The record is a 92-nucleotide RNA from Fukomys damarensis, which matches "mir-331 microRNA precursor family" in Rfam. The family's consensus secondary structure was predicted with RNAalifold. The match comes from Rfam's covariance-model search (110 bits). Gene Ontology terms of the family: RISC complex and miRNA-mediated post-transcriptional gene silencing.
[Rfam]
RNA sequence: GGAGCUGGUUUUGUUUGGGUUUGUUCUAGGUAUGGUCCCAGGGAUCCCAGAUCCAACCAGGCCCCUGGGCCUAUCCUAGAACCAACCUAAGC
Numbered sequence: 001g002g003a004g005c006u007g008g009u010u011u012u013g014u015u016u017g018g019g020u021u022u023g024u025u026c027u028a029g030g031u032a033u034g035g036u037c038c039c040a041g042g043g044a045u046c047c048c049a050g051a052u053c054c055a056a057c058c059a060g061g062c063c064c065c066u067g068g069g070c071c072u073a074u075c076c077u078a079g080a081a082c083c084a085a086c087c088u089a090a091g092c
Base pairs, nucleotide, nucleotide: 015090016089017088018087019086020085021084023082024081025080026079027078028077029076030075032074033073034072035071037069038068039067040066041065042064043063047061048060